A member of the RNA family "c-di-GMP-I riboswitch aptamer" from Acetobacterium bakii, 83 nucleotides long. It scores 66 bits against the family's covariance model.

[Rfam]
RNA sequence: CAGAAUAUUCAGCAAACUUAUCGAAAGGUAAGGACGCAAAGCUAUAGGGUCUAAGUAUUUUUAUAUGACUGCCAGUUGCAAAU
Numbered sequence: 001c002a003g004a005a006u007a008u009u010c011a012g013c014a015a016a017c018u019u020a021u022c023g024a025a026a027g028g029u030a031a032g033g034a035c036g037c038a039a040a041g042c043u044a045u046a047g048g049g050u051c052u053a054a055g056u057a058u059u060u061u062u063a064u065a066u067g068a069c070u071g072c073c074a075g076u077u078g079c080a081a082a083u
Stems, first nucleotide, its partner, number of pairs: 012037002017032006040077004047073002049069003056063002